[Rfam]
RNA: Repression of heat shock gene expression (ROSE) element
Organism: Bradyrhizobium japonicum
RNA sequence: GCCACGCGGGAGCGUGGCGCCGGAUGCCUCUCGGGUCCGGCAGACGCCAUCGGGCAGAAUCCGAUGUUGCUCCUAUCCAUAUUGCUCAGAGGAGGAUGUGGUUAUGAGAA
Numbered sequence: 001g002c003c004a005c006g007c008g009g010g011a012g013c014g015u016g017g018c019g020c021c022g023g024a025u026g027c028c029u030c031u032c033g034g035g036u037c038c039g040g041c042a043g044a045c046g047c048c049a050u051c052g053g054g055c056a057g058a059a060u061c062c063g064a065u066g067u068u069g070c071u072c073c074u075a076u077c078c079a080u081a082u083u084g085c086u087c088a089g090a091g092g093a094g095g096a097u098g099u100g101g102u103u104a105u106g107a108g109a110a
Stems, first nucleotide, its partner, number of pairs: 020040006027034002045069002048066006070108003074104002077101007085094003